[Rfam]
RNA sequence: CUCUGCCUUCAGCCUCUUUAUGAUGCUGCCUUGUGGCGUCUUGAUCAAGCAGCAUUGUACAGGGCUAUGAAGGCGUGG
Numbered sequence: 001c002u003c004u005g006c007c008u009u010c011a012g013c014c015u016c017u018u019u020a021u022g023a024u025g026c027u028g029c030c031u032u033g034u035g036g037c038g039u040c041u042u043g044a045u046c047a048a049g050c051a052g053c054a055u056u057g058u059a060c061a062g063g064g065c066u067a068u069g070a071a072g073g074c075g076u077g078g
Base pairs, nucleotide, nucleotide: 014064015063016062017061019059020058021057022056023055024054025053026052027051028050030049031048032047033046
The record is a 78-nucleotide RNA from Oryzias latipes, which matches "mir-103/107 microRNA precursor family" in Rfam. Pairs were carried over by alignment from the consensus structure, which was predicted with RNAalifold. Rfam 15.1 lists 1,982 matches to the family in 645 species. This family consists of the mammalian microRNA (miRNA) precursors mir-103 and mir107.